Rfam assigns this 72-nucleotide RNA from Merluccius polli to the family "mir-122 microRNA precursor family". NCBI's taxonomy places the organism under Eukaryota, Euteleostomi, Gadiformes, Merlucciidae, Merluccius. The family has 32 seed sequences and 666 matches in Rfam 15.1. A search with the family's covariance model found it, with a score of 84 bits.
RNA sequence: UGGAGCUGUGGAGUGUGACAAUGGUGUUUGUUAUAUGCUUUCAAACGCCAUUAUCACACUAAAUAGCUACGG
Numbered sequence: 001u002g003g004a005g006c007u008g009u010g011g012a013g014u015g016u017g018a019c020a021a022u023g024g025u026g027u028u029u030g031u032u033a034u035a036u037g038c039u040u041u042c043a044a045a046c047g048c049c050a051u052u053a054u055c056a057c058a059c060u061a062a063a064u065a066g067c068u069a070c071g072g
Stems, first nucleotide, its partner, number of pairs: 012060007020052011